[Rfam]
RNA sequence: GAAAGGUUGUGUAAAACACAACUGGAUGCACAACAUACCGGCAUCCCAAUUAGG
Numbered sequence: 001g002a003a004a005g006g007u008u009g010u011g012u013a014a015a016a017c018a019c020a021a022c023u024g025g026a027u028g029c030a031c032a033a034c035a036u037a038c039c040g041g042c043a044u045c046c047c048a049a050u051u052a053g054g
Stems, first nucleotide, its partner, number of pairs: 005023008024046006
A member of the RNA family "S4-Clostridia ribosomal protein leader", 54 nucleotides long. It is annotated as a cis-regulatory leader. A reference for the family is Eckert and Weinberg (2020), "Discovery of 20 novel ribosomal leader candidates in bacteria and archaea", BMC Microbiol. Clan: Ribosomal Protein S4 Leader clan.